Notes:
mir-5697 microRNA precursor family: a 55-nucleotide RNA sequence from Anisodus acutangulus.

[Rfam]
RNA sequence: AAGAAGUUUCAAGAUAAAGUGGAAGAUUCUUCCACUUUAUCUUGAAACUUCUUGA
Number, nucleotide and partner (000 for none) at each position: 001a053002a052003g051004a050005a049006g048007u047008u046009u045010c044011a043012a000013g041014a040015u039016a038017a037018a036019g035020u034021g033022g032023a031024a030025g029026a000027u000028u000029c025030u024031u023032c022033c021034a020035c019036u018037u017038u016039a015040u014041c013042u000043u011044g010045a009046a008047a007048c006049u005050u004051c003052u002053u001054g000055a000
It scores 50 bits against the family's covariance model. The family has 2 seed sequences and 28 matches in Rfam 15.1.